The family of this 80-nucleotide RNA sequence from Dorcoceras hygrometricum is "Small nucleolar RNA R21".
The base pairs follow the family's consensus structure, which was predicted with PFOLD.
Lineage of the source: Eukaryota > Embryophyta > asterids > Gesneriaceae > Dorcoceras.
Gene Ontology terms of the family: nucleolus and RNA processing.
On this family, see Barneche et al., J Mol Biol 2001: "Identification of 66 box C/D snoRNAs in Arabidopsis thaliana: extensive gene duplications generated multiple isoforms predicting new ribosomal RNA 2'-O-methylation sites".
[Rfam]
Nucleotides: 080
Base pairs, nucleotide, nucleotide: 001080002079003078004077005076006075
Number, partner (000 for none) and nucleotide at each position: 001080c002079a003078u004077c005076c006075c007000g008000a009000u010000g011000a012000u013000g014000u015000u016000u017000u018000c019000g020000a021000c022000a023000u024000a025000a026000u027000u028000u029000u030000a031000u032000c033000g034000u035000u036000a037000a038000a039000a040000g041000u042000a043000g044000a045000c046000u047000g048000a049000u050000u051000c052000c053000a054000u055000u056000g057000a058000u059000g060000c061000g062000a063000a064000a065000u066000u067000g068000u069000u070000u071000c072000u073000g074000a075006g076005g077004g078003a079002u080001g
Rfam classes the family as a C/D-box small nucleolar RNA.